[Rfam]
RNA sequence: GUGGCGGUGUGCUGCCACGGGCCGCUGCCGUCCAGCAGGGCGUGGUCACCGAAGCGGUCGCCGUCGGCCAGGACGUCCAGGGCGACCUCGUCGCCGUACUCGCCGACGGACGUCUGGUUGAUGCGGCCGUGGGCGAUGAGGUGGAGCUUGUCGGCUCCCUGCCCGCGCUCCACCAGCGUCUCGCCGGCCUCGAAGUCGCGCUGGACACAGCGGUCGGCGAGGGCGGCCAGAACCUCCACGUCGUCGAAGCCGCGCAGCAUGGCCAGUUCGCCGAGCUCGCGGGGGAUGACCCGGACGUUGCCGCCGUCCUGGAUGAAGUCCACGCGUCCGUCGCCGACGGUGUAGGUCAGGCGGCGGUUCACCCGGUAGACGCCGCCCUUGGUCUCCACCCAGGGGAGCAUCCGCAGCAGCCACCGGGAGGUGAUCUCCUGCAUCUGCGGAGCGGAUUUGGUGGUGGUGGCGAGGUUGCGGGCCGCCGCCGUGCCGAGGCUGGUUUGCUGGGCUGACUCCGG
Numbered sequence: 001g002u003g004g005c006g007g008u009g010u011g012c013u014g015c016c017a018c019g020g021g022c023c024g025c026u027g028c029c030g031u032c033c034a035g036c037a038g039g040g041c042g043u044g045g046u047c048a049c050c051g052a053a054g055c056g057g058u059c060g061c062c063g064u065c066g067g068c069c070a071g072g073a074c075g076u077c078c079a080g081g082g083c084g085a086c087c088u089c090g091u092c093g094c095c096g097u098a099c100u101c102g103c104c105g106a107c108g109g110a111c112g113u114c115u116g117g118u119u120g121a122u123g124c125g126g127c128c129g130u131g132g133g134c135g136a137u138g139a140g141g142u143g144g145a146g147c148u149u150g151u152c153g154g155c156u157c158c159c160u161g162c163c164c165g166c167g168c169u170c171c172a173c174c175a176g177c178g179u180c181u182c183g184c185c186g187g188c189c190u191c192g193a194a195g196u197c198g199c200g201c202u203g204g205a206c207a208c209a210g211c212g213g214u215c216g217g218c219g220a221g222g223g224c225g226g227c228c229a230g231a232a233c234c235u236c237c238a239c240g241u242c243g244u245c246g247a248a249g250c251c252g253c254g255c256a257g258c259a260u261g262g263c264c265a266g267u268u269c270g271c272c273g274a275g276c277u278c279g280c281g282g283g284g285g286a287u288g289a290c291c292c293g294g295a296c297g298u299u300g301c302c303g304c305c306g307u308c309c310u311g312g313a314u315g316a317a318g319u320c321c322a323c324g325c326g327u328c329c330g331u332c333g334c335c336g337a338c339g340g341u342g343u344a345g346g347u348c349a350g351g352c353g354g355c356g357g358u359u360c361a362c363c364c365g366g367u368a369g370a371c372g373c374c375g376c377c378c379u380u381g382g383u384c385u386c387c388a389c390c391c392a393g394g395g396g397a398g399c400a401u402c403c404g405c406a407g408c409a410g411c412c413a414c415c416g417g418g419a420g421g422u423g424a425u426c427u428c429c430u431g432c433a434u435c436u437g438c439g440g441a442g443c444g445g446a447u448u449u450g451g452u453g454g455u456g457g458u459g460g461c462g463a464g465g466u467u468g469c470g471g472g473c474c475g476c477c478g479c480c481g482u483g484c485c486g487a488g489g490c491u492g493g494u495u496u497g498c499u500g501g502g503c504u505g506a507c508u509c510c511g512g
Stems, first nucleotide, its partner, number of pairs: 006390004011385001015382003019328002021325002027320001029318001031316002036312001038310003045305001047303001050300003054233001058229001060227005065112002068109001075103001077102001079100002082097003086093001118221002122217001127212001130209001132206001134203002138199001140197001143196001149192002153189004159183001160178002165173001235295003240290006250282005256277003262269001329342004351379001353377005360372001363369001391431007399423003403418001405416001407415001437476004443470002446467001447465003451461002484511001486509003

Description:
The family of this 512-nucleotide RNA from Streptomyces xanthii is "Saccharopolyspora sRNA 350". The family has 2 seed sequences and 1,170 matches in Rfam 15.1. Taxonomically the source falls in Streptomyces (Bacteria, Actinomycetes, Kitasatosporales, Streptomycetaceae). A reference for the family is Liu et al. (2013), "Prediction and characterization of small non-coding RNAs related to secondary metabolites in Saccharopolyspora erythraea", PLoS One. The match comes from Rfam's covariance-model search (148 bits). By type it is an antisense RNA. Its family is annotated with regulation of secondary metabolite biosynthetic process in the Gene Ontology.